[Rfam]
The record is a 63-nucleotide sequence from Mus musculus, which matches "mir-344 microRNA precursor family" in Rfam. NCBI's taxonomy places the organism under Eukaryota, Craniata, Amniota, Mus, Mus. A reference for the family is Chiang et al. (2010), "Mammalian microRNAs: experimental evaluation of novel and previously annotated genes", Genes Dev.

RNA sequence: AUCAGUCAGGCUCCUGGCUAAAGUUCAGCUUUCAGCUGCAUUUAGCCAAAGCCUGACUGUAAG
Numbered sequence: 001a002u003c004a005g006u007c008a009g010g011c012u013c014c015u016g017g018c019u020a021a022a023g024u025u026c027a028g029c030u031u032u033c034a035g036c037u038g039c040a041u042u043u044a045g046c047c048a049a050a051g052c053c054u055g056a057c058u059g060u061a062a063g
Stems, first nucleotide, its partner, number of pairs: 005057003009053004015048008026038004